[Rfam]
RNA sequence: GCCGGUCCUCGGUAGUGGUCGCCGAGGUGUGGACGGCGAGAAGCCGACCGCCCCCGCCGACUUCGAUCGAAGACCGGC
Numbered sequence: 001g002c003c004g005g006u007c008c009u010c011g012g013u014a015g016u017g018g019u020c021g022c023c024g025a026g027g028u029g030u031g032g033a034c035g036g037c038g039a040g041a042a043g044c045c046g047a048c049c050g051c052c053c054c055c056g057c058c059g060a061c062u063u064c065g066a067u068c069g070a071a072g073a074c075c076g077g078c
Stems, first nucleotide, its partner, number of pairs: 001078007009070005017062005023056002026053002